[Rfam]
Nucleotides: 345
Stems, first nucleotide, its partner, number of pairs: 001341011013311006020042009047329003051326004055214004064246003068210005074086004088102001089100004103205002107203002109199003123145002125141007153171006172194001173192008218269004228260006238253004276295008
Number, partner (000 for none) and nucleotide at each position: 001341u002340g003339g004338g005337u006336g007335a008334a009333a010332u011331a012000a013311g014310u015309a016308g017307c018306u019000g020042c021041u022040g023039u024038u025037g026036u027035a028034u029000g030000a031000u032000a033000a034028a035027u036026a037025c038024a039023g040022c041021a042020g043000a044000g045000g046000a047329a048328a049327g050000u051326c052325c053324g054323g055214c056213u057212c058211c059000a060000a061000g062000g063000a064246a065245a066244a067000a068210u069209a070208g071207u072206g073000a074086c075085g076084g077083g078000u079000a080000a081000u082000a083077c084076c085075c086074g087000c088102c089100g090099g091098a092097g093000g094000u095000g096000a097092c098091u099090u100089c101000a102088g103205u104204u105000c106000a107203g108202g109199g110198c111197u112000a113000c114000a115000g116000a117000a118000a119000a120000u121000u122000a123145c124144c125141g126140c127139c128138u129137a130136a131135g132000a133000u134000u135131u136130u137129u138128a139127g140126g141125u142000a143000a144124g145123g146000a147000u148000g149000a150000a151000a152000a153171g154170g155169u156168g157167u158166g159000g160000u161000a162000a163000g164000a165000g166158c167157a168156u169155a170154c171153c172194a173192u174191a175190c176189c177188a178187a179186u180185g181000g182000c183000a184000a185180c186179a187178u188177u189176g190175g191174u192173a193000g194172u195000u196000g197111a198110g199109u200000a201000a202108c203107c204104a205103a206072c207071a208070c209069u210068a211058g212057g213056a214055g215000c216000a217000a218269g219268a220267u221266u222000a223000a224000a225000u226000a227000a228260g229259a230258g231257u232256a233255g234000g235000u236000u237000u238253u239252a240251u241250g242000c243000u244066u245065u246064u247000c248000c249000u250241c251240a252239u253238g254000u255233c256232u257231a258230c259229u260228c261000g262000g263000g264000u265000a266221a267220a268219u269218c270000g271000c272000a273000u274000g275000c276295a277294g278293u279292a280291a281290a282289u283288g284000g285000u286000a287000a288283c289282a290281u291280u292279u293278a294277c295276u296000c297000c298000a299000g300000a301000u302000a303000a304000a305000u306018a307017g308016c309015u310014a311013c312000a313000u314000a315000a316000a317000c318000a319000g320000a321000a322000c323054u324053c325052g326051g327049c328048u329047u330000a331011u332010a333009u334008u335007u336006c337005a338004c339003c340002u341001a342000g343000g344000c345000a
Bacterial RNase P class A: a 345-nucleotide RNA sequence. Ribonuclease P (RNase P) is a ubiquitous endoribonuclease, found in archaea, bacteria and eukarya as well as chloroplasts and mitochondria. Its best characterised activity is the generation of mature 5'-ends of tRNAs by cleaving the 5'-leader elements of precursor-tRNAs. Cellular RNase Ps are ribonucleoproteins. RNA from bacterial RNase Ps retains its catalytic activity in the absence of the protein subunit, i.e. it is a ribozyme. Rfam classes the family as a ribozyme. A search with the family's covariance model found it, with a score of 267 bits.